RNA sequence: GCACUGGUGGUUCCGGGGGAGAAUUCUUGCCUUCCAUGCAGGAGACCUGAGUUCGAUUCCCAGCCAAUGCA
Numbered sequence: 001g002c003a004c005u006g007g008u009g010g011u012u013c014c015g016g017g018g019g020a021g022a023a024u025u026c027u028u029g030c031c032u033u034c035c036a037u038g039c040a041g042g043a044g045a046c047c048u049g050a051g052u053u054c055g056a057u058u059c060c061c062a063g064c065c066a067a068u069g070c071a
Stems, first nucleotide, its partner, number of pairs: 001070003005066003010024004026042005047063003051059001

A member of the RNA family "tRNA" from Loxodonta africana, 71 nucleotides long. Its family is annotated with triplet codon-amino acid adaptor activity in the Gene Ontology. The family's consensus secondary structure is taken from published work.